[Rfam]
RNA sequence: AUGCAGGAUAAGUUACAAUAUAGCUGGGCAGUGCUGUGUUGUCGUUCCCCCUGCUGAAAGUAAAUGUUUCCUUCUAUUCCUGUCUGUUUCUAUAGCAGACAGGAACGCUUGGUCUCAAACAA
Numbered sequence: 001a002u003g004c005a006g007g008a009u010a011a012g013u014u015a016c017a018a019u020a021u022a023g024c025u026g027g028g029c030a031g032u033g034c035u036g037u038g039u040u041g042u043c044g045u046u047c048c049c050c051c052u053g054c055u056g057a058a059a060g061u062a063a064a065u066g067u068u069u070c071c072u073u074c075u076a077u078u079c080c081u082g083u084c085u086g087u088u089u090c091u092a093u094a095g096c097a098g099a100c101a102g103g104a105a106c107g108c109u110u111g112g113u114c115u116c117a118a119a120c121a122a
Stems, first nucleotide, its partner, number of pairs: 003054005015042010079103004084098004
A member of the RNA family "Small nucleolar RNA SNORA63" from Xenopus laevis, 122 nucleotides long.
E3 belongs to the H/ACA class of snoRNAs and is involved in the processing of eukaryotic pre-rRNA and has regions of complementarity to 18S rRNA. E3 is encoded in introns in the gene for protein synthesis initiation factor 4AII.
Taxonomically the source falls in Xenopus (Eukaryota, Craniata, Anura, Xenopodinae).
A search with the family's covariance model found it, with a score of 123 bits.
The family has 8 seed sequences and 1,279 matches in Rfam 15.1.